[Rfam]
RNA sequence: AGGAGGAACAGCCCCAGUUGCUAUGGCAACCCUGGAAGCCUGGUUUCAGCCUCCGGAGGAACUAUGGGGUUCUUCGUCCGCAGGGGCCUGGAGGCUCCGGGGCGGG
Numbered sequence: 001a002g003g004a005g006g007a008a009c010a011g012c013c014c015c016a017g018u019u020g021c022u023a024u025g026g027c028a029a030c031c032c033u034g035g036a037a038g039c040c041u042g043g044u045u046u047c048a049g050c051c052u053c054c055g056g057a058g059g060a061a062c063u064a065u066g067g068g069g070u071u072c073u074u075c076g077u078c079c080g081c082a083g084g085g086g087c088c089u090g091g092a093g094g095c096u097c098c099g100g101g102g103c104g105g106g
Base pairs, nucleotide, nucleotide: 002098003097004096005095009090010089011088012086013085014084020077021076023074025072028071029070030069031068032067033066034065036063039059040058041057
RNA: mir-8834 microRNA precursor family
Organism: Nyctereutes procyonoides